[Rfam]
RNA sequence: GACCUGCGUCACUUCACAACGGAUCGUCCGGCACGUACCUGCCGGUGAAGGAGCAAA
Numbered sequence: 001g002a003c004c005u006g007c008g009u010c011a012c013u014u015c016a017c018a019a020c021g022g023a024u025c026g027u028c029c030g031g032c033a034c035g036u037a038c039c040u041g042c043c044g045g046u047g048a049a050g051g052a053g054c055a056a057a
Base pairs, nucleotide, nucleotide: 010051012050013049014048015047016046028045029044030043031042032041033040

Shown here is a 57-nucleotide RNA from Nocardioides acrostichi, a member of the family "msiK RNA".
The family's RNA type in Rfam is cis-regulatory element.
A search with the family's covariance model found it, with a score of 61 bits.